The family of this 140-nucleotide RNA sequence from Eschrichtius robustus is "Small Cajal body specific RNA 21".
Rfam classes the family as a small Cajal body RNA.
[Rfam]
RNA sequence: UGGCUCAGUUUCCUGGGGGGUGGGCUCAGCCUGCCCCACCUCCCCUCAGAUGAGCCUAGAGCAGGGAGGCCGGGCUUCCUCCCCAGUGGGAGAGGCAGUUGAGACAGGAGCCUCGCCUUGGCUGUCCGUGCCUCACAUUU
Numbered sequence: 001u002g003g004c005u006c007a008g009u010u011u012c013c014u015g016g017g018g019g020g021u022g023g024g025c026u027c028a029g030c031c032u033g034c035c036c037c038a039c040c041u042c043c044c045c046u047c048a049g050a051u052g053a054g055c056c057u058a059g060a061g062c063a064g065g066g067a068g069g070c071c072g073g074g075c076u077u078c079c080u081c082c083c084c085a086g087u088g089g090g091a092g093a094g095g096c097a098g099u100u101g102a103g104a105c106a107g108g109a110g111c112c113u114c115g116c117c118u119u120g121g122c123u124g125u126c127c128g129u130g131c132c133u134c135a136c137a138u139u140u
Stems, first nucleotide, its partner, number of pairs: 002056006015044010066134005073127002078121002088113003
Rfam's curators write: scaRNAs are a specific class of small nuclear RNAs which localise to the Cajal bodies and guide the modification of RNA polymerase II transcribed spliceosomal RNAs U1, U2, U4, U5 and U12. ACA68 (SCARNA21) is a member of the H/ACA class of snoRNAs that guide the sites of modification of uridines to pseudouridines. This snoRNA was identified by computational screening and its expression in mouse experimentally verified by Northern blot and primer extension analysis. ACA68 is proposed to guide the pseudouridylation of residue U19 in U12 snRNA. The match comes from Rfam's covariance-model search (148 bits).